RNA sequence: UUGUCUUAAGGUUCAUCGUCUAGCUAACGAUGCCCAGAGCUUUGAGACAUAAACAACAAAAUAAAGUCAACCCACUGGGACGGUUGGCCAGUUAAGAAGCGAGGAUUCAUUCUUAUGGCCAAUAUUAGGGAAAGUCUCGUGUGGAUUCUCA
Numbered sequence: 001u002u003g004u005c006u007u008a009a010g011g012u013u014c015a016u017c018g019u020c021u022a023g024c025u026a027a028c029g030a031u032g033c034c035c036a037g038a039g040c041u042u043u044g045a046g047a048c049a050u051a052a053a054c055a056a057c058a059a060a061a062u063a064a065a066g067u068c069a070a071c072c073c074a075c076u077g078g079g080a081c082g083g084u085u086g087g088c089c090a091g092u093u094a095a096g097a098a099g100c101g102a103g104g105a106u107u108c109a110u111u112c113u114u115a116u117g118g119c120c121a122a123u124a125u126u127a128g129g130g131a132a133a134g135u136c137u138c139g140u141g142u143g144g145a146u147u148c149u150c151a
Stems, first nucleotide, its partner, number of pairs: 002049004007044007014032005033079005065147004070142002085121005098111002101108002
RNA: DUF2800 RNA
Organism: Peptostreptococcus sp. D1